[Rfam]
The record is a 172-nucleotide RNA sequence from Streptomyces aurantiacus, which matches "c-di-AMP riboswitch aptamer (ydaO/yuaA leader)" in Rfam. Its family is annotated with cyclic-di-AMP binding and regulation of gene expression in the Gene Ontology. A search with the family's covariance model found it, with a score of 76 bits.
Nucleotides: 172
Base pairs, nucleotide, nucleotide: 011157012156013155014154018042019041020040021039022038023037043152044151045150046149047148048147053064054063065137066136067135073103074102075101076100077099078098106131107130108129109128
Number, partner (000 for none) and nucleotide at each position: 001000g002000a003000g004000c005000g006000g007000g008000c009000u010000c011157c012156g013155c014154c015000g016000a017000a018042u019041c020040c021039g022038g023037u024000a025000c026000g027000c028000c029000c030000u031000c032000g033000u034000g035000g036000c037023a038022c039021c040020g041019g042018a043152a044151c045150c046149g047148g048147g049000g050000a051000c052000c053064c054063a055000a056000c057000c058000g059000a060000a061000c062000u063054u064053g065137g066136g067135g068000u069000g070000a071000a072000u073103c074102g075101g076100u077099c078098c079000g080000a081000a082000c083000u084000c085000c086000c087000u088000c089000g090000c091000g092000g093000g094000a095000c096000a097000a098078g099077g100076g101075c102074c103073g104000u105000a106131g107130g108129g109128c110000a111000a112000a113000c114000c115000u116000u117000c118000c119000g120000a121000a122000g123000c124000a125000u126000u127000c128109g129108c130107c131106c132000g133000a134000a135067c136066c137065c138000g139000a140000c141000a142000g143000c144000u145000a146000a147048c148047u149046c150045g151044g152043u153000a154014g155013g156012c157011g158000g159000a160000u161000g162000a163000c164000g165000g166000a167000a168000g169000g170000a171000g172000a